Shown here is a 45-nucleotide RNA from Microcaecilia unicolor, a member of the family "Histone 3' UTR stem-loop".
The organism belongs to Microcaecilia, within Eukaryota.
Gene Ontology term of the family: mRNA 3'-end processing by stem-loop binding and cleavage.
The base pairs follow the family's consensus structure, which is taken from published work.
RNA sequence: CAAAAGGCUCUUUUAAGAGCCACCACAUCUCUUCAAAAAGAGCUG
Numbered sequence: 001c002a003a004a005a006g007g008c009u010c011u012u013u014u015a016a017g018a019g020c021c022a023c024c025a026c027a028u029c030u031c032u033u034c035a036a037a038a039a040g041a042g043c044u045g
Stems, first nucleotide, its partner, number of pairs: 006021006